This 221-nucleotide RNA from Rhizomicrobium palustre belongs to the Rfam family "permuted transfer-messenger RNA". The source organism's lineage runs through Bacteria, Pseudomonadati, Pseudomonadota, Micropepsaceae and Rhizomicrobium. It scores 136 bits against the family's covariance model. Bacterial tmRNA, also known as 10Sa RNA or SsrA, is named for its dual tRNA and mRNA-like properties.
[Rfam]
RNA sequence: GGCGAUAAACGGCUUCGUAAUAAGCGGACUGGACCCGGGGGCGGUACCCGGCGCCUCCACCAACCUCCCUCUAGAAGCGGGAGCCCUUUUCGAAGGGGCAUGUGGGGGCGAAACAGGAUCGACAGACGUGUAAAGGUUGACCUUUCGCCCGGUAUGGUAUCCGCCGUUAUCGGGCUACUCGUACAGGUGCCAACGAUAAUGAAAUGGCCCUCGCUGCCUAA
Numbered sequence: 001g002g003c004g005a006u007a008a009a010c011g012g013c014u015u016c017g018u019a020a021u022a023a024g025c026g027g028a029c030u031g032g033a034c035c036c037g038g039g040g041g042c043g044g045u046a047c048c049c050g051g052c053g054c055c056u057c058c059a060c061c062a063a064c065c066u067c068c069c070u071c072u073a074g075a076a077g078c079g080g081g082a083g084c085c086c087u088u089u090u091c092g093a094a095g096g097g098g099c100a101u102g103u104g105g106g107g108g109c110g111a112a113a114c115a116g117g118a119u120c121g122a123c124a125g126a127c128g129u130g131u132a133a134a135g136g137u138u139g140a141c142c143u144u145u146c147g148c149c150c151g152g153u154a155u156g157g158u159a160u161c162c163g164c165c166g167u168u169a170u171c172g173g174g175c176u177a178c179u180c181g182u183a184c185a186g187g188u189g190c191c192a193a194c195g196a197u198a199a200u201g202a203a204a205u206g207g208c209c210c211u212c213g214c215u216g217c218c219u220a221a
Stems, first nucleotide, its partner, number of pairs: 001149005013139001016136001025128002029125003035051005052110009150166004